A member of the RNA family "SAM/SAH riboswitch aptamer" from Pontibaca methylaminivorans, 49 nucleotides long.
Taxonomically the source falls in Pontibaca (Bacteria, Pseudomonadati, Alphaproteobacteria, Roseobacteraceae).
[Rfam]
RNA sequence: AACCCGUCACAACGGCUUCCUGACGUGGCGGGAUAAUCUCAAUGGAGCA
Numbered sequence: 001a002a003c004c005c006g007u008c009a010c011a012a013c014g015g016c017u018u019c020c021u022g023a024c025g026u027g028g029c030g031g032g033a034u035a036a037u038c039u040c041a042a043u044g045g046a047g048c049a
Stems, first nucleotide, its partner, number of pairs: 004031007013022002015048003019045002
A reference for the family is Weickhmann et al. (2019), "The structure of the SAM/SAH-binding riboswitch", Nucleic Acids Res. Its family is annotated with regulation of gene expression and S-adenosylmethionine metabolic process in the Gene Ontology.